[Rfam]
RNA sequence: UUUUGCCCAUGAAGGUGUUCCCUCUAAACCUACGUGGAGGAAUGCCUGAUGUCCAGGAAAA
Number, nucleotide and partner (000 for none) at each position: 001u061002u060003u059004u058005g000006c000007c000008c000009a000010u000011g000012a000013a000014g046015g045016u044017g043018u042019u041020c040021c039022c000023u037024c000025u000026a000027a000028a000029c036030c000031u000032a000033c000034g000035u000036g029037g023038a000039g021040g020041a019042a018043u017044g016045c015046c014047u000048g000049a000050u000051g000052u000053c000054c000055a000056g000057g000058a004059a003060a002061a001
Background: Rfam assigns this 61-nucleotide sequence to the family "Selenocysteine insertion sequence 1". The family's RNA type in Rfam is cis-regulatory element. Gene Ontology term of the family: selenocysteine incorporation. A reference for the family is Walczak et al. (1996), "A novel RNA structural motif in the selenocysteine insertion element of eukaryotic selenoprotein mRNAs", RNA.